[Rfam]
Nucleotides: 137
Base pairs, nucleotide, nucleotide: 003135004134005133006132007131008130009129010128017029018028019027031117032116033107034106035068036067037066038065063105064104073081087103088102089101090100091099109120110119111118
Number, partner (000 for none) and nucleotide at each position: 001000a002000u003135u004134c005133g006132u007131c008130u009129u010128c011000g012000g013000g014000g015000c016000a017029g018028g019027g020000u021000g022000a023000a024000a025000u026000u027019c028018c029017c030000u031117a032116c033107c034106g035068g036067c037066g038065g039000u040000g041000a042000u043000g044000a045000a046000a047000c048000a049000c050000u051000c052000g053000u054000u055000g056000u057000u058000u059000c060000u061000a062000a063105g064104c065038c066037c067036g068035c069000g070000a071000g072000c073081c074000u075000u076000u077000a078000g079000g080000g081073g082000c083000a084000g085000g086000a087103u088102u089101u090100g091099g092000u093000g094000a095000a096000a097000u098000u099091c100090c101089a102088a103087a104064g105063c106034c107033g108000a109120c110119a111118g112000u113000a114000c115000a116032g117031u118111c119110u120109g121000g122000a123000u124000g125000g126000g127000a128010g129009a130008a131007g132006a133005u134004g135003a136000a137000g
Rfam assigns this 137-nucleotide RNA from Rossellomorea aquimaris to the family "FMN riboswitch aptamer (RFN element)". It scores 122 bits against the family's covariance model. Taxonomically the source falls in Rossellomorea (Bacteria, Bacillati, Bacillota, Bacillaceae).